[Rfam]
RNA sequence: UCUGGCAAUGAUGACACACUUGCCCUCACUGAGAAUGUUGUUCAAUAAUGAGAGCCUCACCAUAUACUCAGCUGAGCCAGA
Numbered sequence: 001u002c003u004g005g006c007a008a009u010g011a012u013g014a015c016a017c018a019c020u021u022g023c024c025c026u027c028a029c030u031g032a033g034a035a036u037g038u039u040g041u042u043c044a045a046u047a048a049u050g051a052g053a054g055c056c057u058c059a060c061c062a063u064a065u066a067c068u069c070a071g072c073u074g075a076g077c078c079a080g081a
Stems, first nucleotide, its partner, number of pairs: 001081006
Shown here is an 81-nucleotide sequence from Chauna torquata, a member of the family "Small nucleolar RNA SNORD103/SNORD85". The base pairs follow the family's consensus structure. Its family is annotated with nucleolus and RNA processing in the Gene Ontology. It scores 76 bits against the family's covariance model. On this family, see Huttenhofer et al., EMBO J 2001: "RNomics: an experimental approach that identifies 201 candidates for novel, small, non-messenger RNAs in mouse". The source organism's lineage runs through Eukaryota, Craniata, Archosauria, Theropoda and Chauna.